Notes
This 81-nucleotide sequence from Marmota monax belongs to the Rfam family "mir-16 microRNA precursor family". Taxonomically the source falls in Marmota (Eukaryota, Opisthokonta, Mammalia, Rodentia). The literature on the family includes a 2002 paper in Proc Natl Acad Sci U S A by Calin et al., "Frequent deletions and down-regulation of micro- RNA genes miR15 and miR16 at 13q14 in chronic lymphocytic leukemia". Clan: mir-15 clan.
[Rfam]
RNA sequence: GUCACACUAAAGCAGCACAAUAAUAUUGGUGUUUAAUAUAUAUUUUACUACGCCAAUAUUUACGUGCUGCUAGAGUGGAAC
Numbered sequence: 001g002u003c004a005c006a007c008u009a010a011a012g013c014a015g016c017a018c019a020a021u022a023a024u025a026u027u028g029g030u031g032u033u034u035a036a037u038a039u040a041u042a043u044u045u046u047a048c049u050a051c052g053c054c055a056a057u058a059u060u061u062a063c064g065u066g067c068u069g070c071u072a073g074a075g076u077g078g079a080a081c
Stems, first nucleotide, its partner, number of pairs: 001081002005077003011071008020061001022060008